[Rfam]
RNA sequence: AAUUGAAAACGGGGAGCUUGUAGACAGGCUGAGAGGAAGGUGUGCCCUUCGACCCAUGGACCUGAUUUGGAUAAUGCCAACGUAGGGAGACAUAUGCCGUCAUCA
Numbered sequence: 001a002a003u004u005g006a007a008a009a010c011g012g013g014g015a016g017c018u019u020g021u022a023g024a025c026a027g028g029c030u031g032a033g034a035g036g037a038a039g040g041u042g043u044g045c046c047c048u049u050c051g052a053c054c055c056a057u058g059g060a061c062c063u064g065a066u067u068u069g070g071a072u073a074a075u076g077c078c079a080a081c082g083u084a085g086g087g088a089g090a091c092a093u094a095u096g097c098c099g100u101c102a103u104c105a
Stems, first nucleotide, its partner, number of pairs: 005093001011055003016029005036050005061086004067080004

Shown here is a 105-nucleotide sequence from Pseudoflavonifractor sp. An176, a member of the family "TPP riboswitch aptamer (THI element)". Gene Ontology term of the family: thiamine pyrophosphate binding. The match comes from Rfam's covariance-model search (59 bits). Taxonomically the source falls in Pseudoflavonifractor (Bacteria, Bacillati, Bacillota, Eubacteriales).